[Rfam]
RNA: mir-181 microRNA precursor family
RNA sequence: GGUUUACGGUUUACAUUCAUCGCUGUCGGUGGGUUGGUGAUGUGGUCAACCUGUCGGUCGAUGAAUGGUCACCGUGGCC
Numbered sequence: 001g002g003u004u005u006a007c008g009g010u011u012u013a014c015a016u017u018c019a020u021c022g023c024u025g026u027c028g029g030u031g032g033g034u035u036g037g038u039g040a041u042g043u044g045g046u047c048a049a050c051c052u053g054u055c056g057g058u059c060g061a062u063g064a065a066u067g068g069u070c071a072c073c074g075u076g077g078c079c
Stems, first nucleotide, its partner, number of pairs: 004077005014067009025058007033050004